[Rfam]
Nucleotides: 065
Base pairs, nucleotide, nucleotide: 010025011024012023013022016056017055018054019053020052021051034045035044036043
Number, partner (000 for none) and nucleotide at each position: 001000u002000u003000g004000a005000a006000u007000u008000u009000u010025g011024g012023c013022a014000a015000u016056g017055a018054u019053g020052u021051c022013u023012g024011c025010c026000u027000u028000g029000a030000a031000c032000c033000g034045c035044c036043c037000a038000a039000c040000a041000u042000u043036g044035g045034g046000a047000u048000g049000a050000u051021g052020a053019c054018g055017u056016c057000u058000a059000g060000g061000g062000a063000a064000c065000a
Fluoride riboswitch aptamer (crcB RNA motif): a 65-nucleotide RNA sequence from Sediminicola luteus.
Its family is annotated with response to fluoride and positive regulation of gene expression in the Gene Ontology.